[Rfam]
RNA sequence: AAGUAUGCCAGAGCGUAAAUUUUUCACUAUUCUUUCGCCUUUUACUAAAGAAUACCGUGUGUUCUCCACGCUAAGUGGCAUACGCCUAUUUUUGGAGGGUCCUGCUUUCGAGUGGGCCC
Numbered sequence: 001a002a003g004u005a006u007g008c009c010a011g012a013g014c015g016u017a018a019a020u021u022u023u024u025c026a027c028u029a030u031u032c033u034u035u036c037g038c039c040u041u042u043u044a045c046u047a048a049a050g051a052a053u054a055c056c057g058u059g060u061g062u063u064c065u066c067c068a069c070g071c072u073a074a075g076u077g078g079c080a081u082a083c084g085c086c087u088a089u090u091u092u093u094g095g096a097g098g099g100u101c102c103u104g105c106u107u108u109c110g111a112g113u114g115g116g117c118c119c
Stems, first nucleotide, its partner, number of pairs: 004077003011066003015062003019058001028054008098118005

Shown here is a 119-nucleotide sequence from Brassica rapa, a member of the family "U5 spliceosomal RNA". The base pairs follow the family's consensus structure, which is taken from published work.